Source information
The record is a 107-nucleotide RNA sequence from Thermobacillus composti, which matches "SAM riboswitch aptamer (S box leader)" in Rfam. NCBI's taxonomy places the organism under Bacteria, Bacillati, Bacilli, Thermobacillus, Thermobacillus composti. A search with the family's covariance model found it, with a score of 82 bits.

RNA sequence: UUCUUAUCAAGAGCAGGCGGAGGGACUGGCCCGAUGAAGCCCGGCAACCGGCGUUCAGCACGGUGCUAAUUCUUGCGGAAAAUGUGAUGUUUUCCGAGAGAUGAGGA
Numbered sequence: 001u002u003c004u005u006a007u008c009a010a011g012a013g014c015a016g017g018c019g020g021a022g023g024g025a026c027u028g029g030c031c032c033g034a035u036g037a038a039g040c041c042c043g044g045c046a047a048c049c050g051g052c053g054u055u056c057a058g059c060a061c062g063g064u065g066c067u068a069a070u071u072c073u074u075g076c077g078g079a080a081a082a083u084g085u086g087a088u089g090u091u092u093u094c095c096g097a098g099a100g101a102u103g104a105g106g107a
Base pairs, nucleotide, nucleotide: 001107002106003105004104005103006102007101008100013042016041017040018039022032023031024030026075028073029072043067044066045065046064048063049062050059071099076096077095078094079093080092081091082090083089